[Rfam]
RNA sequence: UUUAACGAGAGUUUGAUCCUGGCUCAGGAUGAACGCUGGCGGUAUGUCUAAGGCAUGCAAGUCUAAGGUCUUCUUCGGAAGGCCUGGCAAACGGGAGAGUAACACAUUGGUAACUCACCCCUAGUUCAAGUAUAACUCUGUGAAAACGGAGACAAUCCUUGAUAGUCCGUUAAUCUCCAGCAAUGGAGUUUAACGGUAAAGGUCCGCCGACUAGGGAGAGGCCUAUGGCUUAUCAGCUUGUUGGUGAGGUAAAAGCUCACCAAGGCAAUGACGAGUAGCGGGCGUAAGAGCGUGACCCGUCCCACUGGAACUGAGACACUGUCCAGACUCCUACGGGAGGCUGCAGUCAAGAAUCUUUCGCAAUGGCCGAAAGGCUGACGGAGCAAUACCGCGUGAAGGAAGACACCCCUCGGGGCGUAAACUUCUUUUCUUAGGGAAGAAUUAGUGACGUUACCUAAGGAAUAAGCAACUGCUAACUUCGUGCCAGCAGCAGCGGUAAUACGAAGGUUGCAAGCGUUAUCCGGAAUCAUUG
Numbered sequence: 001u002u003u004a005a006c007g008a009g010a011g012u013u014u015g016a017u018c019c020u021g022g023c024u025c026a027g028g029a030u031g032a033a034c035g036c037u038g039g040c041g042g043u044a045u046g047u048c049u050a051a052g053g054c055a056u057g058c059a060a061g062u063c064u065a066a067g068g069u070c071u072u073c074u075u076c077g078g079a080a081g082g083c084c085u086g087g088c089a090a091a092c093g094g095g096a097g098a099g100u101a102a103c104a105c106a107u108u109g110g111u112a113a114c115u116c117a118c119c120c121c122u123a124g125u126u127c128a129a130g131u132a133u134a135a136c137u138c139u140g141u142g143a144a145a146a147c148g149g150a151g152a153c154a155a156u157c158c159u160u161g162a163u164a165g166u167c168c169g170u171u172a173a174u175c176u177c178c179a180g181c182a183a184u185g186g187a188g189u190u191u192a193a194c195g196g197u198a199a200a201g202g203u204c205c206g207c208c209g210a211c212u213a214g215g216g217a218g219a220g221g222c223c224u225a226u227g228g229c230u231u232a233u234c235a236g237c238u239u240g241u242u243g244g245u246g247a248g249g250u251a252a253a254a255g256c257u258c259a260c261c262a263a264g265g266c267a268a269u270g271a272c273g274a275g276u277a278g279c280g281g282g283c284g285u286a287a288g289a290g291c292g293u294g295a296c297c298c299g300u301c302c303c304a305c306u307g308g309a310a311c312u313g314a315g316a317c318a319c320u321g322u323c324c325a326g327a328c329u330c331c332u333a334c335g336g337g338a339g340g341c342u343g344c345a346g347u348c349a350a351g352a353a354u355c356u357u358u359c360g361c362a363a364u365g366g367c368c369g370a371a372a373g374g375c376u377g378a379c380g381g382a383g384c385a386a387u388a389c390c391g392c393g394u395g396a397a398g399g400a401a402g403a404c405a406c407c408c409c410u411c412g413g414g415g416c417g418u419a420a421a422c423u424u425c426u427u428u429u430c431u432u433a434g435g436g437a438a439g440a441a442u443u444a445g446u447g448a449c450g451u452u453a454c455c456u457a458a459g460g461a462a463u464a465a466g467c468a469a470c471u472g473c474u475a476a477c478u479u480c481g482u483g484c485c486a487g488c489a490g491c492a493g494c495g496g497u498a499a500u501a502c503g504a505a506g507g508u509u510g511c512a513a514g515c516g517u518u519a520u521c522c523g524g525a526a527u528c529a530u531u532g
Base pairs, nucleotide, nucleotide: 009025010024011023012022013021027522028521029520030519032518033517034516035515036514037513039392040391041390042389043388044387045385046384047350052348053347054346056345057344058343061088062087063086066085067084068083069082070081071080072079073078095303097301105227106226107225109223110222111221114220115219119216120215121214122213123212124211125210127161128160129159130158136151137150138149139148140147141146167196168195169194170193171192172191173190175188176187177186178185179184201208202207229275230274231273236266237265238264241263242262243261244260245259246258247257248256278300279299280298281297282293283292284291285290305326306325307324308323309322328339329338330337331336356382358381359380360379364377365376366375367374368373395425396424397423398422406415407414408413430459431458432457433456434455435454439449466511467510468509469508470507477506478505479504480503481502487494488493